[Rfam]
RNA sequence: AACCCAACAUAAGCGCCAGUGCCCCGCCGGAAGGGCGGGGACGACGAGGUGGGGGAAGUAUCGAAGGAUUCGGCGGGUGUCCCCCCGUGCCGCUCCGGGUGCGUACACAGCCUAAAAAUAUGCGGGUGACCGCAAAACAAAGGGGCUGUGACCGGGGAAC
Numbered sequence: 001a002a003c004c005c006a007a008c009a010u011a012a013g014c015g016c017c018a019g020u021g022c023c024c025c026g027c028c029g030g031a032a033g034g035g036c037g038g039g040g041a042c043g044a045c046g047a048g049g050u051g052g053g054g055g056a057a058g059u060a061u062c063g064a065a066g067g068a069u070u071c072g073g074c075g076g077g078u079g080u081c082c083c084c085c086c087g088u089g090c091c092g093c094u095c096c097g098g099g100u101g102c103g104u105a106c107a108c109a110g111c112c113u114a115a116a117a118a119u120a121u122g123c124g125g126g127u128g129a130c131c132g133c134a135a136a137a138c139a140a141a142g143g144g145g146c147u148g149u150g151a152c153c154g155g156g157g158a159a160c
Base pairs, nucleotide, nucleotide: 022040023039024038025037026036027035028033051085052084053083054082055081061073062072063071064070086103087102088101089100090099091098106150107149108148109147110146111145112144121134122133123132124131125130
A member of the RNA family "glmS glucosamine-6-phosphate activated ribozyme aptamer" from Flavonifractor sp. An100, 160 nucleotides long. It is annotated as a riboswitch. Gene Ontology terms of the family: regulation of gene expression and catalytic activity. The family's consensus secondary structure is taken from published work.